[Rfam]
The family of this 76-nucleotide RNA from Sphenodon punctatus is "Small nucleolar RNA SNORD47". A search with the family's covariance model found it, with a score of 58 bits. NCBI's taxonomy places the organism under Eukaryota, Bilateria, Dipnotetrapodomorpha, Sauropsida, Sphenodon. Its family is annotated with nucleolus and RNA processing in the Gene Ontology.
RNA sequence: AACCAGUGAUGAAAAUUGAUUCUGCCAAAUGAACGUCUGUGAUAUUACCCCAUUCCGUUCCAUACUCUCAGAGGUU
Numbered sequence: 001a002a003c004c005a006g007u008g009a010u011g012a013a014a015a016u017u018g019a020u021u022c023u024g025c026c027a028a029a030u031g032a033a034c035g036u037c038u039g040u041g042a043u044a045u046u047a048c049c050c051c052a053u054u055c056c057g058u059u060c061c062a063u064a065c066u067c068u069c070a071g072a073g074g075u076u
Stems, first nucleotide, its partner, number of pairs: 001076004